[Rfam]
RNA sequence: UCACUGAAAAGGCAAACUCAUUGAAAGGUGAGGACGCAAAGUUACAGACCUAAGGGAUUCCUAUGGUGGCUGAGCAGCCAAU
Numbered sequence: 001u002c003a004c005u006g007a008a009a010a011g012g013c014a015a016a017c018u019c020a021u022u023g024a025a026a027g028g029u030g031a032g033g034a035c036g037c038a039a040a041g042u043u044a045c046a047g048a049c050c051u052a053a054g055g056g057a058u059u060c061c062u063a064u065g066g067u068g069g070c071u072g073a074g075c076a077g078c079c080a081a082u
Stems, first nucleotide, its partner, number of pairs: 012037002017032006041075003045072003048067003055061002

The record is an 82-nucleotide RNA from Aquibacillus halophilus, which matches "c-di-GMP-I riboswitch aptamer" in Rfam.
Rfam describes the family as follows. GEMM was predicted in a large-scale screen for bacterial structured RNA regulatory elements.
NCBI's taxonomy places the organism under Bacteria, Bacillati, Bacillota, Bacillaceae, Aquibacillus.
The family's consensus secondary structure is taken from published work.
The match comes from Rfam's covariance-model search (67 bits).